[Rfam]
RNA: Small nucleolar RNA SNORA74
Nucleotides: 202
Stems, first nucleotide, its partner, number of pairs: 002059008011051002015046006021039005068138001070136004074131003082127005088119005095112001098110004140197005146191002156183003160179007
Number, partner (000 for none) and nucleotide at each position: 001000c002059c003058c004057a005056a006055u007054g008053g009052u010000u011051g012050u013000c014000a015046g016045c017044u018043a019042u020041c021039c022038a023037g024036g025035c026000u027000u028000g029000u030000a031000u032000g033000a034000u035025g036024c037023c038022u039021g040000u041020g042019a043018u044017g045016g046015u047000g048000u049000u050012a051011c052009a053008c054007u055006g056005u057004u058003g059002g060000a061000a062000g063000a064000a065000c066000a067000a068138g069000c070136g071135c072134u073133a074131c075130c076129u077000g078000u079000u080000u081000u082127g083126a084125g085124g086123u087000c088119u089118g090117g091116c092115u093000u094000c095112a096000u097000g098110c099109a100108c101107u102000g103000u104000u105000u106000u107101g108100g109099u110098g111000u112095u113000u114000u115092g116091g117090u118089c119088a120000a121000g122000u123086a124085c125084c126083u127082u128000u129076g130075g131074g132000u133073u134072a135071g136070c137000a138068u139000u140197u141196u142195g143194c144193a145000c146191c147190u148000c149000u150000g151000a152000g153000a154000g155000u156183g157182g158181a159000a160179u161178g162177g163176c164175u165174c166173c167000u168000c169000c170000u171000g172000u173166g174165g175164a176163g177162u178161u179160g180000g181158u182157c183156c184000u185000a186000g187000u188000c189000u190147g191146g192000a193144u194143g195142c196141a197140a198000a199000c200000a201000u202000u